[Rfam]
Nucleotides: 098
Stems, first nucleotide, its partner, number of pairs: 008091006020035004037078003040074002044072001046070001050066005
Number, partner (000 for none) and nucleotide at each position: 001000g002000a003000u004000c005000g006000a007000c008091u009090c010089u011088c012087u013086g014000g015000a016000g017000a018000c019000a020035c021034c022033u023032g024000g025000a026000u027000a028000u029000g030000a031000c032023c033022a034021g035020g036000g037078g038077c039076c040074g041073a042000a043000g044072g045000u046070g047000c048000a049000a050066c051065a052064u053063a054062c055000g056000c057000g058000a059000u060000g061000u062054g063053u064052a065051u066050g067000a068000a069000u070046c071000u072044c073041u074040c075000a076039g077038g078037c079000a080000a081000c082000a083000g084000g085000a086013c087012a088011g089010a090009g091008a092000a093000g094000a095000u096000a097000u098000c

Shown here is a 98-nucleotide RNA sequence from Roseburia sp. CAG:197, a member of the family "Glycine riboswitch aptamer". The source organism's lineage runs through Bacteria, Bacillota, Clostridia, Lachnospiraceae and Roseburia.